[Rfam]
RNA sequence: UUCUCAGGUCCCCAGUGCAGCCCCCAGAUGAGCCUGCCGUAUUUUUCUUAUGUGAUCAGGUCCCACCGUGGGCAGCGCUGCUUGCCCAGAGCCUGAGAGGAUUAUGAAAUCAUGGCAAGGGUAGCAAGGCAAGGGGACCCAGCA
Dot-bracket structure: (.(...(((((((......(((.................................((((((.(....(((((((....)))))))...).))))))...............................)))..)))))))..).)

The record is a 144-nucleotide sequence from Saimiri boliviensis, which matches "small Cajal body-specific RNA 17" in Rfam. Rfam describes the family as follows. scaRNAs are a specific class of small nuclear RNAs which localise to the Cajal bodies and guide the modification of RNA polymerase II transcribed spliceosomal RNAs U1, U2, U4, U5 and U12. The family has 6 seed sequences and 262 matches in Rfam 15.1. Taxonomically the source falls in Saimiri boliviensis (Eukaryota, Chordata, Boreoeutheria, Primates). It scores 145 bits against the family's covariance model.